[Rfam]
RNA sequence: GCGGAGGUGGCGAAAUUGGUAGACGCACUACUUUGAGGUGGUAGCGCCGUAACUGGCGUGGGAGUUCGAAUCUCCUCUUCCGCA
Numbered sequence: 001g002c003g004g005a006g007g008u009g010g011c012g013a014a015a016u017u018g019g020u021a022g023a024c025g026c027a028c029u030a031c032u033u034u035g036a037g038g039u040g041g042u043a044g045c046g047c048c049g050u051a052a053c054u055g056g057c058g059u060g061g062g063a064g065u066u067c068g069a070a071u072c073u074c075c076u077c078u079u080c081c082g083c084a
Base pairs, nucleotide, nucleotide: 001083002082003081004080005079006078007077010026011025012024028044029043030042031041032040060076061075062074063073064072
RNA: tRNA